[Rfam]
RNA sequence: GGGUCUGGGGGAGCUAUCUCCUAGAGGCAAACUGGAUGGUCGGGCCGCCAUCC
Dot-bracket structure: ....((((((((....)))))))).........(((((((......)))))))
Numbered sequence: 001g002g003g004u005c006u007g008g009g010g011g012a013g014c015u016a017u018c019u020c021c022u023a024g025a026g027g028c029a030a031a032c033u034g035g036a037u038g039g040u041c042g043g044g045c046c047g048c049c050a051u052c053c
Stems, first nucleotide, its partner, number of pairs: 005024008034053007